The record is a 377-nucleotide RNA sequence from Penicillium capsulatum, which matches "RNase MRP" in Rfam. A search with the family's covariance model found it, with a score of 125 bits. RNase MRP is an enzymatically active ribonucleoprotein with two distinct roles in eukaryotes. In mitochondria it plays a direct role in the initiation of mitochondrial DNA replication. In the nucleus it is involved in precursor rRNA processing, where it cleaves the internal transcribed spacer 1 between 18S and 5.8S rRNAs.
[Rfam]
RNA sequence: UCCUCGCUCAAAGAAUCGCAUUCAAAGCUCACACACAAAGAAGCUCGCUUCUUUCAUACCUCUUGCUUUGGGAGAAAGUCCCCGGACACCCUGCGCUUUGGUCUUCCAAAGUCUACAAGCCAGGCAAUGCGGAAACGCGCCGCCAUAGAAGCAAUUCGAUAGCGGCUUACUGCCCUACUCCCUCCCGGCCUUGUGUGCGCCGUCCGACCGGGUCCCCCGGAAACAAUGGGAUGUGUGUCACGGGUUGGAGAGGGGAAGGGGGACUUCGGUCUUCCUUGUAUCGGGUUGCUUUUCGUCAUGUUUGGAUAGUCAUGCGAUUGCUCCCGGCCUCCUCGGAGGUUCGGAGUAACUCAAUGGGGCUCAUUCUUGAGGCGAGG
Numbered sequence: 001u002c003c004u005c006g007c008u009c010a011a012a013g014a015a016u017c018g019c020a021u022u023c024a025a026a027g028c029u030c031a032c033a034c035a036c037a038a039a040g041a042a043g044c045u046c047g048c049u050u051c052u053u054u055c056a057u058a059c060c061u062c063u064u065g066c067u068u069u070g071g072g073a074g075a076a077a078g079u080c081c082c083c084g085g086a087c088a089c090c091c092u093g094c095g096c097u098u099u100g101g102u103c104u105u106c107c108a109a110a111g112u113c114u115a116c117a118a119g120c121c122a123g124g125c126a127a128u129g130c131g132g133a134a135a136c137g138c139g140c141c142g143c144c145a146u147a148g149a150a151g152c153a154a155u156u157c158g159a160u161a162g163c164g165g166c167u168u169a170c171u172g173c174c175c176u177a178c179u180c181c182c183u184c185c186c187g188g189c190c191u192u193g194u195g196u197g198c199g200c201c202g203u204c205c206g207a208c209c210g211g212g213u214c215c216c217c218c219g220g221a222a223a224c225a226a227u228g229g230g231a232u233g234u235g236u237g238u239c240a241c242g243g244g245u246u247g248g249a250g251a252g253g254g255g256a257a258g259g260g261g262g263a264c265u266u267c268g269g270u271c272u273u274c275c276u277u278g279u280a281u282c283g284g285g286u287u288g289c290u291u292u293u294c295g296u297c298a299u300g301u302u303u304g305g306a307u308a309g310u311c312a313u314g315c316g317a318u319u320g321c322u323c324c325c326g327g328c329c330u331c332c333u334c335g336g337a338g339g340u341u342c343g344g345a346g347u348a349a350c351u352c353a354a355u356g357g358g359g360c361u362c363a364u365u366c367u368u369g370a371g372g373c374g375a376g377g
Base pairs, nucleotide, nucleotide: 002377003376004375005374006373007372008370009369010368011367014319015318016317017316018315019314022072023070024069025068026067027066028065038053039052040051041050042049043048077361078360080359081358082357083356096111097110098109099108100107101106231286232285234283235282240279241278242277243276258267259266260265321346322345323344324343326341327340328339329338330337